[Rfam]
The family of this 100-nucleotide RNA sequence from Vanilla planifolia is "Plastid-rps12 3UTR RNA". Pairs were carried over by alignment from the consensus structure, which was predicted with LocARNA. About the family: Plastid rpl20 is a non-coding RNA (ncRNA) recognised in plastids. It was found in the three prime untranslated region (3UTR) of rps12 gene, its 3UTR location sugest a role in transcript maduration. NCBI's taxonomy places the organism under Eukaryota, Spermatophyta, Liliopsida, Orchidaceae, Vanilla. Rfam 15.1 lists 1,710 matches to the family in 1,426 species. For this family Rfam cites "Retrograde signaling in plants: A critical review focusing on the GUN pathway and beyond" (Richter et al., Plant Commun, 2023). By type it is a cis-regulatory element.
RNA sequence: GGUUUCUAUUUGUGCAAAUCCAAUCAUUUCGUUUGAGAUGAGAAUCAAUUCUCCAUUGGUAGCAAAUAGUUAUAGUUAUCCAUUAAGCGGAGGAAAUAGU
Numbered sequence: 001g002g003u004u005u006c007u008a009u010u011u012g013u014g015c016a017a018a019u020c021c022a023a024u025c026a027u028u029u030c031g032u033u034u035g036a037g038a039u040g041a042g043a044a045u046c047a048a049u050u051c052u053c054c055a056u057u058g059g060u061a062g063c064a065a066a067u068a069g070u071u072a073u074a075g076u077u078a079u080c081c082a083u084u085a086a087g088c089g090g091a092g093g094a095a096a097u098a099g100u
Stems, first nucleotide, its partner, number of pairs: 009023002012020001051092004055083002058080005063069001